[Rfam]
About this RNA
The family of this 144-nucleotide sequence from Rattus norvegicus is "Small nucleolar RNA SNORA4". Rfam classes the family as an H/ACA-box small nucleolar RNA. Rfam's curators write: ACA4 is a member of the H/ACA class of snoRNA that guide the sites of modification of uridines to pseudouridines. A search with the family's covariance model found it, with a score of 88 bits. Pairs were carried over by alignment from the consensus structure, which was predicted with PFOLD.
RNA sequence: AAUCUAGAUCCUGUUUUAUCUGCUUCAAACUUGGUUAAGAAAAAUUGCUACUCAAUUCAGGCUAUUUGGCAGAAUGAGUAAGAGCACACUCCACAGUGGACCAUACCACUUAGUAUGGUUCAUUACUAUAUUGUGGCCUACAUU
Numbered sequence: 001a002a003u004c005u006a007g008a009u010c011c012u013g014u015u016u017u018a019u020c021u022g023c024u025u026c027a028a029a030c031u032u033g034g035u036u037a038a039g040a041a042a043a044a045u046u047g048c049u050a051c052u053c054a055a056u057u058c059a060g061g062c063u064a065u066u067u068g069g070c071a072g073a074a075u076g077a078g079u080a081a082g083a084g085c086a087c088a089c090u091c092c093a094c095a096g097u098g099g100a101c102c103a104u105a106c107c108a109c110u111u112a113g114u115a116u117g118g119u120u121c122a123u124u125a126c127u128a129u130a131u132u133g134u135g136g137c138c139u140a141c142a143u144u
Base pairs, nucleotide, nucleotide: 004069005068006067007066008065012064013063015061016060017059029052031050032047033046034045035044081139082138085135086134087133088132095124096123097122098121099120100119101118102117103116104115105114106113